Nucleotides: 093
Base pairs, nucleotide, nucleotide: 001093003091004090005089006088009085010084011083012082013081014080015079016078017077018076019075020074021072023071024070025069026068027067028066029065030064031063034061035060036059037058040055041054042053043052044051045050
Number, partner (000 for none) and nucleotide at each position: 001093a002000u003091u004090c005089g006088g007000a008000u009085u010084c011083g012082c013081c014080a015079u016078c017077a018076u019075a020074c021072g022000u023071c024070c025069a026068a027067c028066c029065g030064u031063g032000c033000a034061u035060u036059u037058g038000a039000u040055a041054u042053g043052c044051a045050u046000a047000u048000a049000u050045a051044u052043g053042c054041a055040u056000c057000g058037c059036g060035a061034g062000c063031c064030a065029c066028g067027g068026u069025u070024g071023g072021c073000u074020g075019u076018a077017u078016g079015a080014u081013g082012g083011c084010g085009a086000u087000a088006c089005c090004g091003a092000u093001u

Annotation: A member of the RNA family "MIR9666 microRNA precursor family" from Triticum aestivum, 93 nucleotides long. Pairs were carried over by alignment from the consensus structure, which was predicted with RNAalifold. The sequence is in the family's curated seed alignment.